Rfam assigns this 160-nucleotide sequence from Caloranaerobacter sp. TR13 to the family "glmS glucosamine-6-phosphate activated ribozyme aptamer".
By type it is a riboswitch.
It scores 126 bits against the family's covariance model.
The organism belongs to Caloranaerobacter, within Bacteria.
Its family is annotated with regulation of gene expression and catalytic activity in the Gene Ontology.
[Rfam]
RNA sequence: AUUGAAUAAAAAGCGCCAGGACUUAAAAGUAUUACUUUUAAGUUGACGAGGACAGGGUUUAUCGAAUUUUCGGCGGAUGCCCUGCGGUGUAACCACCACCGUUAAAGAUUCUACAAAACCCAUAAGCGAUUAUGGGGACAAAAGGAAUCGGGUGGAUUAA
Dot-bracket structure: ...................((((((((.(.....).))))))))........(((((....((((....))))......)))))(((((.......))))).....((((((......(((((((....))))))).......))))))...........